Source information
Fungal signal recognition particle RNA: a 272-nucleotide RNA sequence from Colletotrichum gloeosporioides. Rfam links the family to the GO terms SRP-dependent cotranslational protein targeting to membrane, signal sequence recognition, signal recognition particle, endoplasmic reticulum targeting and signal recognition particle, plasma membrane targeting. NCBI's taxonomy places the organism under Eukaryota, Opisthokonta, Ascomycota, leotiomyceta, Colletotrichum gloeosporioides. The match comes from Rfam's covariance-model search (150 bits). By type it is a non-coding RNA gene.

RNA sequence: CGGCUGUAAUGGUCAAGUUGGUUGAAGGCUUUCAUUAUUCUUCUCCCGCUACCCCAUAACCAUUGGAACCCCCUUGUGGCGCCCAGUGCGAAUGCUGCGGUGGCUACUCACUCGCACGGGUAACCUGCGAUGCUGCGGUAGCCCUAAGCAAUGAAGAUGACACUUGAGGGAGGUUUCACUCUGCAGAGGCAUUUUCACCGUCGCAUGGCGUGCUGGAUUACGAUCGCUAGGGGCUUGGGGUAGUGGCUGAAGAUGGAGAUGUCAACUCCGUU
Dot-bracket structure: .(((.......))).....((((((....((((((.....(((..(((((((((................((.(.(((.((.((((((((.((((.((((.(.(((((((.(((((.((....)))))))...)).))))).)(...)...(((((((....(((....(((......)))....)))..))))))))))).))))..))))))))....))..))).)..))....)))))))))..))).))))))...)))))).....